[Rfam]
This 55-nucleotide sequence from Brevundimonas sp. S30B belongs to the Rfam family "terC RNA". The match comes from Rfam's covariance-model search (59 bits). The source organism's lineage runs through Bacteria, Pseudomonadati, Pseudomonadota, Caulobacterales and Brevundimonas. The family has 129 seed sequences and 1,112 matches in Rfam 15.1. Rfam classes the family as a cis-regulatory element.
RNA sequence: UGUGCGGCCCGGGCCCCUCUGGCGAUCACUGUGAUCGUGAUGUCGGACCGCAUCG
Numbered sequence: 001u002g003u004g005c006g007g008c009c010c011g012g013g014c015c016c017c018u019c020u021g022g023c024g025a026u027c028a029c030u031g032u033g034a035u036c037g038u039g040a041u042g043u044c045g046g047a048c049c050g051c052a053u054c055g
Stems, first nucleotide, its partner, number of pairs: 006049002009046004022038007